[Rfam]
RNA: Guanidine-II riboswitch aptamer (mini-ykkC)
RNA sequence: CGGCCGGGACGACCCGGACGGCGGAUCCUCCGGAGGACGGCCUCG
Numbered sequence: 001c002g003g004c005c006g007g008g009a010c011g012a013c014c015c016g017g018a019c020g021g022c023g024g025a026u027c028c029u030c031c032g033g034a035g036g037a038c039g040g041c042c043u044c045g
Stems, first nucleotide, its partner, number of pairs: 001020002004017005033044004